[Rfam]
RNA: U11 spliceosomal RNA
Organism: Nicotiana attenuata
RNA sequence: AAAAAGGGUCGGUUGGCUAAAUAUGCCACACUCGCCCGAGUGGUGAGUGCCGUAUGGAUAUCAAGACAUAUGGCCGACAUAAUUUGUGGAACUAUUAUAGGGUUGGCUCGUCGGCCGACCCUCCA
Numbered sequence: 001a002a003a004a005a006g007g008g009u010c011g012g013u014u015g016g017c018u019a020a021a022u023a024u025g026c027c028a029c030a031c032u033c034g035c036c037c038g039a040g041u042g043g044u045g046a047g048u049g050c051c052g053u054a055u056g057g058a059u060a061u062c063a064a065g066a067c068a069u070a071u072g073g074c075c076g077a078c079a080u081a082a083u084u085u086g087u088g089g090a091a092c093u094a095u096u097a098u099a100g101g102g103u104u105g106g107c108u109c110g111u112c113g114g115c116c117g118a119c120c121c122u123c124c125a
Stems, first nucleotide, its partner, number of pairs: 008078005014028004029049008050073007099122008108114002